[Rfam]
RNA sequence: GAAGACCCUGUUGAGCUUGACUCUAGUCCGACUUUGUGAAAUGACUUAGAAGGUGUAGUAUAAGUGGGAGCUAAUUAGUAUUUAUAUUGGUUAGUGGUCUUGAAAUACCACUACUUUUAAUGUGAUUUUACUUAUUUCGUAAAGUUGAAGCUCGCACAGUCUUAAUUUAUUGUGUGUGUUUUAGAGUUAAUGCAACAGAUGAUAUUAUAUAUUUAACGUAUAUUUUAUUUGCUAAUUUAUGCGGAAGACAUAGUCAGGUGGGGAGUUUGGCUGGGGCGGCACAUCUGUUAAAGAAUAACGCAGGUGUCCUAAGGCAAGCUCAAUAAGAACAGAAAUCUUAUGUUGACUAAAAGGGGAAAAGCUUGCUUGAUUUUAAUUUUCAGUACAAAUGCAAACUGUGAAAGCAUGGCCUAUCGAUCCUUUAGGGCUGAAAAAUUUUCAGCUAGAGGUGUCAGAAAAGUUACCACAGGGAUAACUGGCUUGUGGCAGCCAAGCGUUCAUAGCGACGUUGCUUUUUGAUCCUUCGAUGU
Dot-bracket structure: ......((((.(((((((.((((...((.((((..(((((((.(((((((((..........(((((..((((((((((......))))))))))............))))).))))))).)).)))))))...(((((.....(.((....((((..............)))).................((((.................................))))...)).)..))))).....)))).))....))))..((((.....))).)((((((...........))))))..((....((((((((.((((((.......))))))...))((......))....))))))....(((..((((.......))))..))).(((....))).))..........((((((..((((.......)))))))))).........)))))..))))))........(.(.(.((((((...((.......))...))))))...)).)..........

The family of this 530-nucleotide part of an RNA from Sciurus carolinensis is "Eukaryotic large subunit ribosomal RNA". Gene Ontology terms of the family: ribosome and structural constituent of ribosome.